[Rfam]
RNA sequence: UUGGGUGACCGGGCCCCUCUGGCGAAAGUGGCGGCGCUUUCGUGAUGUCGGCACUGAAA
Dot-bracket structure: .....((.((((.........((((((((......))))))))....))))))......
A member of the RNA family "terC RNA", 59 nucleotides long. It scores 54 bits against the family's covariance model. It is annotated as a cis-regulatory element. The family's consensus secondary structure is taken from published work. The family has 129 seed sequences and 1,112 matches in Rfam 15.1.